[Rfam]
RNA: che1 RNA
Organism: Actinacidiphila alni
RNA sequence: GGGACAGGGGGGUCUUCGCCCACCGGUGGAGCCUGUCCCACCAGGUUGCGCGAGAGCGUGGCCAGUGGUUGUCGCUCGGGGGUGAUCGCCG
Numbered sequence: 001g002g003g004a005c006a007g008g009g010g011g012g013u014c015u016u017c018g019c020c021c022a023c024c025g026g027u028g029g030a031g032c033c034u035g036u037c038c039c040a041c042c043a044g045g046u047u048g049c050g051c052g053a054g055a056g057c058g059u060g061g062c063c064a065g066u067g068g069u070u071g072u073c074g075c076u077c078g079g080g081g082g083u084g085a086u087c088g089c090c091g
Stems, first nucleotide, its partner, number of pairs: 001039008014031007044063008